[Rfam]
RNA sequence: GAAAAGGCUCUUUUAAGAGCCACCACAUGGUCAGUAAAGAGCUGUGU
Numbered sequence: 001g002a003a004a005a006g007g008c009u010c011u012u013u014u015a016a017g018a019g020c021c022a023c024c025a026c027a028u029g030g031u032c033a034g035u036a037a038a039g040a041g042c043u044g045u046g047u
Stems, first nucleotide, its partner, number of pairs: 006021006
RNA: Histone 3' UTR stem-loop